[Rfam]
RNA sequence: UCUGGAACAAUAUCCUGGUGCUGCUUGAGUGGAUGUCAGAGACUCCAGCAUCAGUGAUUUUGUUGCAGA
Dot-bracket structure: .....(((((.((((((((((((......................))))))))).))).))))).....

About this RNA: Rfam assigns this 69-nucleotide sequence from Clupea harengus to the family "mir-338 microRNA precursor family". For this family Rfam cites "The developmental miRNA profiles of zebrafish as determined by small RNA cloning" (Chen et al., Genes Dev, 2005). The organism belongs to Clupea, within Eukaryota. Gene Ontology terms of the family: RISC complex and miRNA-mediated post-transcriptional gene silencing. The match comes from Rfam's covariance-model search (84 bits).